[Rfam]
RNA sequence: AAAGCAGAUUUCAAUUGUGGUAUUUCUUUUCAUUGAAAUAUUUCAAUUAUCCUACUAAAAGUCAUGCUGAUCCAUUUUCACUUUGCCUUUAAGAGGUUAAAAUCCUGACAGAUUGAUAAAACAAGA
Numbered sequence: 001a002a003a004g005c006a007g008a009u010u011u012c013a014a015u016u017g018u019g020g021u022a023u024u025u026c027u028u029u030u031c032a033u034u035g036a037a038a039u040a041u042u043u044c045a046a047u048u049a050u051c052c053u054a055c056u057a058a059a060a061g062u063c064a065u066g067c068u069g070a071u072c073c074a075u076u077u078u079c080a081c082u083u084u085g086c087c088u089u090u091a092a093g094a095g096g097u098u099a100a101a102a103u104c105c106u107g108a109c110a111g112a113u114u115g116a117u118a119a120a121a122c123a124a125g126a
Stems, first nucleotide, its partner, number of pairs: 003056002006053002019042008065118002068115005080103001082101004087096003
RNA: Small nucleolar RNA SNORA69